RNA sequence: AACCGUCCACAACGGCUUCCUGACGUGGAUCUGAACCUAACUGGAGCA
Numbered sequence: 001a002a003c004c005g006u007c008c009a010c011a012a013c014g015g016c017u018u019c020c021u022g023a024c025g026u027g028g029a030u031c032u033g034a035a036c037c038u039a040a041c042u043g044g045a046g047c048a
Base pairs, nucleotide, nucleotide: 005030006029007028008027009026010025013022014021015047016046017045019044020043

A member of the RNA family "SAM/SAH riboswitch aptamer" from Octadecabacter temperatus, 48 nucleotides long. It scores 49 bits against the family's covariance model. Pairs were carried over by alignment from the consensus structure, which is taken from published work. The organism belongs to Octadecabacter, within Bacteria. For this family Rfam cites "The structure of the SAM/SAH-binding riboswitch" (Weickhmann et al., Nucleic Acids Res, 2019).